[Rfam]
Nucleotides: 117
Base pairs, nucleotide, nucleotide: 001031002030003029004028009024010023011022012021013020014019038080039079040078041077042076043075044074045073046072047071055063056062057061082101083100084099085098086097087096088095089094102117103116104115105114107112
Number, partner (000 for none) and nucleotide at each position: 001031c002030g003029c004028c005000u006000a007000a008000a009024c010023c011022c012021u013020g014019a015000g016000u017000a018000a019014u020013c021012a022011g023010g024009g025000c026000a027000u028004g029003g030002u031001g032000a033000a034000a035000g036000a037000a038080c039079c040078g041077a042076u043075g044074a045073g046072a047071g048000g049000c050000a051000a052000a053000a054000a055063g056062c057061u058000c059000c060000u061057a062056g063055u064000c065000a066000g067000a068000g069000c070000a071047c072046u073045c074044u075043c076042a077041u078040c079039g080038g081000u082101c083100a084099u085098g086097u087096c088095u089094c090000g091000a092000a093000a094089g095088g096087g097086a098085u099084a100083u101082g102117g103116g104115u105114g106000c107112c108000g109000c110000a111000a112107g113000a114105c115104a116103u117102c